Shown here is a 123-nucleotide RNA sequence from Gossypium raimondii, a member of the family "MIR7504 microRNA precursor family".
Its family is annotated with RISC complex and miRNA-mediated post-transcriptional gene silencing in the Gene Ontology.
It is one of the family's seed sequences.
The source organism's lineage runs through Eukaryota, Viridiplantae, Gunneridae, rosids and Gossypium.

RNA sequence: AAUAGUUUUAUGCCAUAUUAGCAUUUUCAUCUUGAAUUUCAGCAUUUUCAUCCUGAAAAAAAUUAAAUCCAAAUUAAAAUCCUUAAAUUCAGGAUAAAAUUACUGAUGUGGCAUAAAAUUAUU
Numbered sequence: 001a002a003u004a005g006u007u008u009u010a011u012g013c014c015a016u017a018u019u020a021g022c023a024u025u026u027u028c029a030u031c032u033u034g035a036a037u038u039u040c041a042g043c044a045u046u047u048u049c050a051u052c053c054u055g056a057a058a059a060a061a062a063u064u065a066a067a068u069c070c071a072a073a074u075u076a077a078a079a080u081c082c083u084u085a086a087a088u089u090c091a092g093g094a095u096a097a098a099a100u101u102a103c104u105g106a107u108g109u110g111g112c113a114u115a116a117a118a119u120u121a122u123u
Base pairs, nucleotide, nucleotide: 001123002122003121004120005119006118007117008116009115010114011113012112013111014110015109016108017107018106019105020104021103023100024099026098027097029095030094031093032092033091034090035089036088037087038086039085041083042082045079046078047077048076